[Rfam]
RNA sequence: GGCUGGCUGCCUGGUGCGUCAGGCUGCUUUAUCCCCGGGGCCGAUAAUCAUUACCUCUGGGGGCUGUCCCUGUCGGCACCGUGGUGCCGGUAUAUGGCUCCCACCUGCUUGAGCAGGUCACGAGGGAUGGCUUACGCCAACGGCCAAGGUGGCCACCUU
Numbered sequence: 001g002g003c004u005g006g007c008u009g010c011c012u013g014g015u016g017c018g019u020c021a022g023g024c025u026g027c028u029u030u031a032u033c034c035c036c037g038g039g040g041c042c043g044a045u046a047a048u049c050a051u052u053a054c055c056u057c058u059g060g061g062g063g064c065u066g067u068c069c070c071u072g073u074c075g076g077c078a079c080c081g082u083g084g085u086g087c088c089g090g091u092a093u094a095u096g097g098c099u100c101c102c103a104c105c106u107g108c109u110u111g112a113g114c115a116g117g118u119c120a121c122g123a124g125g126g127a128u129g130g131c132u133u134a135c136g137c138c139a140a141c142g143g144c145c146a147a148g149g150u151g152g153c154c155a156c157c158u159u
Stems, first nucleotide, its partner, number of pairs: 002157001004155008012146004017142003032127004038121001040118003059102003063098005072091008
RNA: 6S / SsrS RNA
Organism: Azospirillum sp. RU38E